This 78-nucleotide RNA from Chelonoidis abingdonii belongs to the Rfam family "mir-192/215 microRNA precursor family".

RNA sequence: ACAAGACUAUGACCUAUGAAUUGACAGCCAGUCCUUCUGCCGCCUCCUGGCUGUCAGUUCUGUAGGGCACAGGUAUGU
Numbered sequence: 001a002c003a004a005g006a007c008u009a010u011g012a013c014c015u016a017u018g019a020a021u022u023g024a025c026a027g028c029c030a031g032u033c034c035u036u037c038u039g040c041c042g043c044c045u046c047c048u049g050g051c052u053g054u055c056a057g058u059u060c061u062g063u064a065g066g067g068c069a070c071a072g073g074u075a076u077g078u
Stems, first nucleotide, its partner, number of pairs: 001078003005074001007072002010069002013066004018060014
Rfam 15.1 lists 810 matches to the family in 628 species. Pairs were carried over by alignment from the consensus structure, which was predicted with PFOLD. The literature on the family includes a 2003 paper in RNA by Lagos-Quintana et al., "New microRNAs from mouse and human". Rfam's curators write: This family represents the human microRNA (miRNA) precursors mir-192 and mir-215. Animal miRNAs are transcribed as ~70nt precursors and subsequently processed by the Dicer enzyme to give a ~22nt product. In this case the mature sequence comes from the 5' arm of the precursor. The extents of the hairpin precursors are not generally known and are estimated based on hairpin prediction.